[Rfam]
RNA: Nitrogen stress-induced RNA 1
Organism: Oxynema acuminatum
RNA sequence: UAGUAGAUGCACCCUGAUGGCUUCCCGUUCAACUUGAGCGGGAUUUUUUUU
Number, nucleotide and partner (000 for none) at each position: 001u000002a000003g012004u011005a000006g000007a000008u000009g000010c000011a004012c003013c000014c000015u000016g000017a000018u000019g000020g000021c000022u000023u043024c042025c041026c040027g039028u038029u037030c036031a035032a000033c000034u000035u031036g030037a029038g028039c027040g026041g025042g024043a023044u000045u000046u000047u000048u000049u000050u000051u000